[Rfam]
Nucleotides: 157
Stems, first nucleotide, its partner, number of pairs: 012142003018046005047138006057066001067123003075098007101117004
Number, partner (000 for none) and nucleotide at each position: 001000c002000g003000c004000g005000g006000u007000g008000c009000g010000a011000g012142g013141c014140c015000g016000a017000g018046u019045c020044c021043g022042u023000c024000c025000u026000g027000g028000u029000c030000g031000a032000c033000a034000c035000g036000a037000c038000c039000g040000g041000a042022a043021c044020g045019g046018a047138g048137c049136c050135g051134g052133g053000g054000a055000c056000c057066c058000a059000g060000g061000u062000u063000c064000c065000a066057g067123g068122g069121g070000u071000g072000a073000a074000u075098c076097g077096g078095c079094g080093c081092g082000a083000c084000c085000c086000g087000a088000g089000a090000g091000c092081c093080g094079c095078g096077c097076c098075g099000u100000a101117g102116g103115g104114c105000u106000g107000c108000u109000u110000c111000c112000a113000u114104g115103c116102c117101c118000g119000a120000a121069u122068c123067c124000g125000u126000c127000a128000g129000c130000u131000a132000a133052c134051c135050c136049g137048g138047u139000a140014g141013g142012c143000g144000u145000c146000a147000u148000g149000g150000g151000a152000g153000u154000a155000a156000g157000g

Shown here is a 157-nucleotide sequence from Actinomadura chibensis, a member of the family "c-di-AMP riboswitch aptamer (ydaO/yuaA leader)".
The match comes from Rfam's covariance-model search (77 bits).
Its family is annotated with regulation of gene expression and cyclic-di-AMP binding in the Gene Ontology.